[Rfam]
RNA sequence: GUAAGGAUGAUGAAAGAAAUCAUUCGGAUUCCCAUUGAUUUCCUACGCGGGAAAGAUGUGAUCAUAAACCAGCUACUUUUGACUUAU
Number, nucleotide and partner (000 for none) at each position: 001g087002u086003a085004a084005g083006g000007a000008u000009g000010a000011u000012g000013a000014a000015a000016g000017a000018a000019a000020u000021c000022a000023u000024u000025c000026g000027g000028a000029u000030u000031c000032c000033c000034a000035u000036u000037g000038a000039u000040u000041u000042c000043c000044u000045a000046c000047g000048c000049g000050g000051g000052a000053a000054a000055g000056a000057u000058g000059u000060g000061a000062u000063c000064a000065u000066a000067a000068a000069c000070c000071a000072g000073c000074u000075a000076c000077u000078u000079u000080u000081g000082a000083c005084u004085u003086a002087u001
A member of the RNA family "Small nucleolar RNA R12" from Brassica napus, 87 nucleotides long. For this family Rfam cites "The high diversity of snoRNAs in plants: identification and comparative study of 120 snoRNA genes from Oryza sativa" (Chen et al., Nucleic Acids Res, 2003). NCBI's taxonomy places the organism under Eukaryota, Viridiplantae, Streptophytina, Brassicales, Brassica. A search with the family's covariance model found it, with a score of 86 bits. Rfam describes the family as follows. snoR12 is a C/D box small nucleolar RNA, which acts as a methylation guide for 25S ribosomal RNA in plants. snoR12 has been alternatively named snoZ44 in Arabidopsis and snoZ131 in rice. Pairs were carried over by alignment from the consensus structure, which was predicted with PFOLD. Its family is annotated with nucleolus and RNA processing in the Gene Ontology. Rfam 15.1 lists 992 matches to the family in 220 species.